Notes: The record is a 157-nucleotide sequence from Sinanaerobacter chloroacetimidivorans, which matches "M-box riboswitch aptamer (ykoK leader)" in Rfam. A reference for the family is Ramesh and Winkler (2010), "Magnesium-sensing riboswitches in bacteria", RNA Biol. The base pairs follow the family's consensus structure. About the family: M-box riboswitch, also know as ykoK leader is described as a metaloregulatory RNA that sense divalent metals and function as a genetic control element of genes related to divalent metal transport in bacteria. Its family is annotated with response to magnesium ion and regulation of gene expression in the Gene Ontology. Taxonomically the source falls in Sinanaerobacter (Bacteria, Bacillati, Bacillota, Anaerovoracaceae). A search with the family's covariance model found it, with a score of 109 bits.
RNA sequence: UGAAUAUCUCGGUAGGUGAGGCUACCACAGGGAUACGGAUUGCUACCGCGGAGUAGUGGAGACACUAUGAGAAGGUCAGCAGUUUAUGUCGAAACCAAGGCAUAAACUAAUGCAAUUUCAUCGCCCUGUGAUGCUGAAGCUUGAACGGUGAUGGAAG
Numbered sequence: 001u002g003a004a005u006a007u008c009u010c011g012g013u014a015g016g017u018g019a020g021g022c023u024a025c026c027a028c029a030g031g032g033a034u035a036c037g038g039a040u041u042g043c044u045a046c047c048g049c050g051g052a053g054u055a056g057u058g059g060a061g062a063c064a065c066u067a068u069g070a071g072a073a074g075g076u077c078a079g080c081a082g083u084u085u086a087u088g089u090c091g092a093a094a095c096c097a098a099g100g101c102a103u104a105a106a107c108u109a110a111u112g113c114a115a116u117u118u119c120a121u122c123g124c125c126c127u128g129u130g131a132u133g134c135u136g137a138a139g140c141u142u143g144a145a146c147g148g149u150g151a152u153g154g155a156a157g
Stems, first nucleotide, its partner, number of pairs: 005153004010148001011146001013098001015141003020135003026130007039116005046074001049071001055066004082107004088101003